The family of this 109-nucleotide RNA is "RT-5 RNA". It is annotated as a small RNA. It is one of the family's seed sequences.
RNA sequence: UUGCGCCUGCGGCGGACCCGGCGCGGGACCCCAUUUCCGGCUUCGCAGGCAGCCGGUCCCGCGUACGGUCUGGUGCAAUCCUGGAAUUUCCAGGAUUUAAUGAUUUCUC
Dot-bracket structure: ....(((((((.[[[.[[..[[[[[[.[..........[[[[.)))))))]]]]..]]].]]]]..]].]]]......((((((.....))))))..............
Numbered sequence: 001u002u003g004c005g006c007c008u009g010c011g012g013c014g015g016a017c018c019c020g021g022c023g024c025g026g027g028a029c030c031c032c033a034u035u036u037c038c039g040g041c042u043u044c045g046c047a048g049g050c051a052g053c054c055g056g057u058c059c060c061g062c063g064u065a066c067g068g069u070c071u072g073g074u075g076c077a078a079u080c081c082u083g084g085a086a087u088u089u090c091c092a093g094g095a096u097u098u099a100a101u102g103a104u105u106u107c108u109c
Stems, first nucleotide, its partner, number of pairs: 005050007013072003017068002021064004025059002028057001039054004079095006